Rfam assigns this 140-nucleotide sequence from Rhizobium etli to the family "Rhizobiales sRNA Atu_C7".

[Rfam]
RNA sequence: CACAUUCGAAAGUUCAGCUACGGCAUCUGGACUUUCCUCGUUGGGUUCUCCUGGCGCGUUCCUAAGCCGCGGAUGUUCCUCCCUCAUCCGUUGGUAAUGCGCCCGCCUCGCCUCGCUCGCACCAGCGCGCGAGGCGUCUU
Numbered sequence: 001c002a003c004a005u006u007c008g009a010a011a012g013u014u015c016a017g018c019u020a021c022g023g024c025a026u027c028u029g030g031a032c033u034u035u036c037c038u039c040g041u042u043g044g045g046u047u048c049u050c051c052u053g054g055c056g057c058g059u060u061c062c063u064a065a066g067c068c069g070c071g072g073a074u075g076u077u078c079c080u081c082c083c084u085c086a087u088c089c090g091u092u093g094g095u096a097a098u099g100c101g102c103c104c105g106c107c108u109c110g111c112c113u114c115g116c117u118c119g120c121a122c123c124a125g126c127g128c129g130c131g132a133g134g135c136g137u138c139u140u
Stems, first nucleotide, its partner, number of pairs: 053103008069091007110135007118127001120125001
Overview: Taxonomically the source falls in Rhizobium etli (Bacteria, Pseudomonadati, Pseudomonadota, Alphaproteobacteria). It is annotated as a small RNA.